[Rfam]
RNA sequence: AGGAAAAAGCAGAAGCUCCCGCUUCUCGCCUUGAGGACUAUUCGGUUCCCGGGCAUUUCUAAUGGAUUUCGGAAUAAAUGAAGUGAAGGAAGCGGGGGGCUUAGUAAUAAGUCUUCCGCUUUUUCUGUAUUUU
Number, nucleotide and partner (000 for none) at each position: 001a000002g000003g000004a000005a000006a000007a000008a000009g000010c000011a026012g025013a024014a023015g022016c021017u000018c000019c000020c000021g016022c015023u014024u013025c012026u011027c000028g054029c053030c052031u000032u000033g000034a000035g048036g047037a046038c045039u000040a000041u000042u000043c000044g000045g038046u037047u036048c035049c000050c000051g000052g030053g029054c028055a000056u000057u000058u000059c000060u000061a000062a000063u000064g000065g000066a000067u000068u000069u000070c000071g000072g000073a000074a000075u000076a000077a000078a000079u000080g000081a000082a000083g000084u000085g000086a000087a000088g000089g000090a000091a120092g119093c118094g117095g116096g115097g114098g113099g112100c111101u110102u109103a108104g000105u000106a000107a000108u103109a102110a101111g100112u099113c098114u097115u096116c095117c094118g093119c092120u091121u000122u000123u000124u000125c000126u000127g000128u000129a000130u000131u000132u000133u000
Background: Ribosomal protein L20 leader: a 133-nucleotide RNA sequence from Liquorilactobacillus capillatus. The match comes from Rfam's covariance-model search (70 bits). The organism belongs to Liquorilactobacillus capillatus, within Bacteria.